[Rfam]
RNA sequence: ACCGCUGAGCCAUCUCUCCAGCUCCCAGAAUAAUUUUUUUAAAAAAAGAAAGCUAAAAGGGUUGGAGAGAUGGCUCAGUGGU
Numbered sequence: 001a002c003c004g005c006u007g008a009g010c011c012a013u014c015u016c017u018c019c020a021g022c023u024c025c026c027a028g029a030a031u032a033a034u035u036u037u038u039u040u041a042a043a044a045a046a047a048g049a050a051a052g053c054u055a056a057a058a059g060g061g062u063u064g065g066a067g068a069g070a071u072g073g074c075u076c077a078g079u080g081g082u
Stems, first nucleotide, its partner, number of pairs: 002081023